[Rfam]
A member of the RNA family "Rhodo-rpoB RNA", 94 nucleotides long. By type it is a cis-regulatory element.
RNA sequence: GGUUCGGGAGCCGCCUUUCGGGACAGGCGGCAGGUAUGGAACCACUCUCCCCUCUCGCCAGUUGGCGCGCCCCUGUGACCCGACAGGAAGCGUG
Numbered sequence: 001g002g003u004u005c006g007g008g009a010g011c012c013g014c015c016u017u018u019c020g021g022g023a024c025a026g027g028c029g030g031c032a033g034g035u036a037u038g039g040a041a042c043c044a045c046u047c048u049c050c051c052c053u054c055u056c057g058c059c060a061g062u063u064g065g066c067g068c069g070c071c072c073c074u075g076u077g078a079c080c081c082g083a084c085a086g087g088a089a090g091c092g093u094g
Base pairs, nucleotide, nucleotide: 001043002042003041004040005039010031011030012029013028014027015026016025066094067093068092069091070090072087073086074085075084